About this RNA: A member of the RNA family "mir-5928 microRNA precursor family" from Haemonchus placei, 75 nucleotides long. Rfam links the family to the GO terms RISC complex and miRNA-mediated post-transcriptional gene silencing. The base pairs follow the family's consensus structure, which was predicted with RNAalifold.
RNA sequence: GGCCCAAAUUUGAAGUAGAGUAGAUCAGAAGGAUAAUCUGACCCUGCUGAACUAGUAUACUUCGAGUUUGUGCAC
Numbered sequence: 001g002g003c004c005c006a007a008a009u010u011u012g013a014a015g016u017a018g019a020g021u022a023g024a025u026c027a028g029a030a031g032g033a034u035a036a037u038c039u040g041a042c043c044c045u046g047c048u049g050a051a052c053u054a055g056u057a058u059a060c061u062u063c064g065a066g067u068u069u070g071u072g073c074a075c
Stems, first nucleotide, its partner, number of pairs: 002073002005070005011064007019056001021054003025050004030045001032043001034041001